The record is a 90-nucleotide sequence from Amphiprion ocellaris, which matches "mir-204 microRNA precursor family" in Rfam. Rfam links the family to the GO terms miRNA-mediated post-transcriptional gene silencing and RISC complex.
RNA sequence: AUGUGGCCUAUGGACUUCCCUUUGUCAUCCUAUGCCUGGGUGCAUACAAAAGGGGCUGGGAAGGCAAAGGGAUGCCCAGUUGUCACGCAA
Numbered sequence: 001a002u003g004u005g006g007c008c009u010a011u012g013g014a015c016u017u018c019c020c021u022u023u024g025u026c027a028u029c030c031u032a033u034g035c036c037u038g039g040g041u042g043c044a045u046a047c048a049a050a051a052g053g054g055g056c057u058g059g060g061a062a063g064g065c066a067a068a069g070g071g072a073u074g075c076c077c078a079g080u081u082g083u084c085a086c087g088c089a090a
Stems, first nucleotide, its partner, number of pairs: 017072006024065002028061005034056004